[Rfam]
Small nucleolar RNA SNORA69: a 132-nucleotide RNA from Asarcornis scutulata. Pairs were carried over by alignment from the consensus structure, which was predicted with PFOLD. From the family's description: U69 is a member of the H/ACA class of small nucleolar RNAs (snoRNAs) which act as guides in the the modification of uridines to pseudouridines. It scores 89 bits against the family's covariance model.

RNA sequence: AAAGCAGGCUGCAAUUGCAGUGCUUCAUUCUGUGGGAGUACUGCCAUUUCCCUGCUGAGAGUAACUCUGUUAAUGUUGUCUUUGGUUUUACCUACACAUUGGUGAAACCGUUCAUCCUUAACAUGUACAUCU
Numbered sequence: 001a002a003a004g005c006a007g008g009c010u011g012c013a014a015u016u017g018c019a020g021u022g023c024u025u026c027a028u029u030c031u032g033u034g035g036g037a038g039u040a041c042u043g044c045c046a047u048u049u050c051c052c053u054g055c056u057g058a059g060a061g062u063a064a065c066u067c068u069g070u071u072a073a074u075g076u077u078g079u080c081u082u083u084g085g086u087u088u089u090a091c092c093u094a095c096a097c098a099u100u101g102g103u104g105a106a107a108c109c110g111u112u113c114a115u116c117c118u119u120a121a122c123a124u125g126u127a128c129a130u131c132u
Stems, first nucleotide, its partner, number of pairs: 003056006018043009066125001068123006075116001083110010094099001